[Rfam]
RNA: mir-395 microRNA precursor family
Nucleotides: 099
Base pairs, nucleotide, nucleotide: 005095007093008092009091011089012088013087014086015085016084017083018082019081020080022079023078024077025076026075027074028073029072030071031070033068034067036065
Number, partner (000 for none) and nucleotide at each position: 001000g002000u003000u004000u005095c006000u007093c008092c009091u010000g011089g012088a013087g014086u015085u016084c017083c018082c019081u020080u021000c022079a023078a024077g025076c026075a027074c028073u029072u030071c031070g032000g033068u034067a035000g036065g037000g038000c039000c040000c041000a042000a043000a044000u045000a046000a047000a048000a049000a050000a051000g052000c053000g054000u055000a056000u057000a058000c059000a060000u061000g062000g063000g064000c065036u066000g067034u068033a069000g070031u071030g072029a073028a074027g075026u076025g077024u078023u079022u080020g081019g082018g083017g084016g085015a086014a087013c088012u089011c090000u091009a092008g093007g094000u095005g096000u097000c098000g099000c